The family of this 93-nucleotide RNA from Lipotes vexillifer is "Small nucleolar RNA SNORD116". Its family is annotated with RNA processing and nucleolus in the Gene Ontology. Taxonomically the source falls in Lipotes (Eukaryota, Craniata, Teleostomi, Cetacea).
[Rfam]
RNA sequence: GGAUCAAUAAUGACACCCCUGUAUGAAUUCCUUGGAAAAUCUCAACAAAAUGAGUGAGAACACUCCUCUGUCUCCUCAUCGAAUCUGAAGUCC
Numbered sequence: 001g002g003a004u005c006a007a008u009a010a011u012g013a014c015a016c017c018c019c020u021g022u023a024u025g026a027a028u029u030c031c032u033u034g035g036a037a038a039a040u041c042u043c044a045a046c047a048a049a050a051u052g053a054g055u056g057a058g059a060a061c062a063c064u065c066c067u068c069u070g071u072c073u074c075c076u077c078a079u080c081g082a083a084u085c086u087g088a089a090g091u092c093c
Stems, first nucleotide, its partner, number of pairs: 001093004027055004032048003

The family's consensus secondary structure was predicted with PFOLD.
The match comes from Rfam's covariance-model search (68 bits).
It is annotated as a C/D-box small nucleolar RNA.